[Rfam]
RNA sequence: CCCUGUACGCCAGCGUGCAGGGUCCCCUAUUCAGCUCUAAAAAAGGGGUCUGCUCGUG
Numbered sequence: 001c002c003c004u005g006u007a008c009g010c011c012a013g014c015g016u017g018c019a020g021g022g023u024c025c026c027c028u029a030u031u032c033a034g035c036u037c038u039a040a041a042a043a044a045g046g047g048g049u050c051u052g053c054u055c056g057u058g
Stems, first nucleotide, its partner, number of pairs: 001022008

ClpQY promoter: a 58-nucleotide RNA sequence from Jejuibacter calystegiae. Pairs were carried over by alignment from the consensus structure. Lineage of the source: Bacteria > Pseudomonadati > Enterobacterales > Enterobacteriaceae > Jejuibacter. Rfam classes the family as a cis-regulatory element. A reference for the family is Lien et al. (2009), "Regulation of clpQ(+)Y(+) (hslV(+)U(+)) gene expression in Escherichia coli", Open Microbiol J. It scores 44 bits against the family's covariance model.